[Rfam]
RNA sequence: GAGGUCGAUGCGGGAGAGCCGGCGGCACGCGAGUGCACGACCGGCACCGAAGGAGCAAUCCUCCCCGACAAUCUCUCAGGUACGCGUACCGCAUCGGACUG
Numbered sequence: 001g002a003g004g005u006c007g008a009u010g011c012g013g014g015a016g017a018g019c020c021g022g023c024g025g026c027a028c029g030c031g032a033g034u035g036c037a038c039g040a041c042c043g044g045c046a047c048c049g050a051a052g053g054a055g056c057a058a059u060c061c062u063c064c065c066c067g068a069c070a071a072u073c074u075c076u077c078a079g080g081u082a083c084g085c086g087u088a089c090c091g092c093a094u095c096g097g098a099c100u101g
Base pairs, nucleotide, nucleotide: 006096007095008094009093010092011091012090013089019044020043021042022041046081047080048079049077050076053075054074055073059068060067
This 101-nucleotide RNA from Leifsonia tongyongensis belongs to the Rfam family "Glycine riboswitch aptamer".